[Rfam]
RNA sequence: GAGGGGUAAGAAUAGGUCGAUCGACCUGGGGUAAAAAGAAGUCAACCGUUGGGGUAAAACUAAAUCUGCUUCUUUUUAUCCCUAAAACUUUUUACCGUGGGUAAAAAGAAUCUUCUUGGGGUAUAAAAAGAACCUGAUUUAGACUUACCUCAAGGGUUGAUGUCUUCUUUUUACCACACAAAGAUCAAUCUCUUUUUACCCCAU
Numbered sequence: 001g002a003g004g005g006g007u008a009a010g011a012a013u014a015g016g017u018c019g020a021u022c023g024a025c026c027u028g029g030g031g032u033a034a035a036a037a038g039a040a041g042u043c044a045a046c047c048g049u050u051g052g053g054g055u056a057a058a059a060c061u062a063a064a065u066c067u068g069c070u071u072c073u074u075u076u077u078a079u080c081c082c083u084a085a086a087a088c089u090u091u092u093u094a095c096c097g098u099g100g101g102u103a104a105a106a107a108g109a110a111u112c113u114u115c116u117u118g119g120g121g122u123a124u125a126a127a128a129a130g131a132a133c134c135u136g137a138u139u140u141a142g143a144c145u146u147a148c149c150u151c152a153a154g155g156g157u158u159g160a161u162g163u164c165u166u167c168u169u170u171u172u173a174c175c176a177c178a179c180a181a182a183g184a185u186c187a188a189u190c191u192c193u194u195u196u197u198a199c200c201c202c203a204u
Stems, first nucleotide, its partner, number of pairs: 003202010014191004019186004027178002030175005041164001043162002045157003049153005055147003060142007068134001070132007077123006084116001088108009
RNA: MIR2670 microRNA precursor family
Organism: Medicago truncatula